The record is a 69-nucleotide RNA sequence from Amycolatopsis sp. SID8362, which matches "ASpks TB sRNA" in Rfam. Taxonomically the source falls in Amycolatopsis (Bacteria, Actinomycetota, Actinomycetes, Pseudonocardiales).
RNA sequence: CUUCACCGAGCCGAGCCACAGGGGGUGCUCGCGGUCGCGGCCGUAGGUGGCCAGGAGCGCCUGGGCCUC
Numbered sequence: 001c002u003u004c005a006c007c008g009a010g011c012c013g014a015g016c017c018a019c020a021g022g023g024g025g026u027g028c029u030c031g032c033g034g035u036c037g038c039g040g041c042c043g044u045a046g047g048u049g050g051c052c053a054g055g056a057g058c059g060c061c062u063g064g065g066c067c068u069c
Stems, first nucleotide, its partner, number of pairs: 014026001016024002028065003032059002039052001041050003
Rfam classes the family as an antisense RNA.
The base pairs follow the family's consensus structure, which is taken from published work.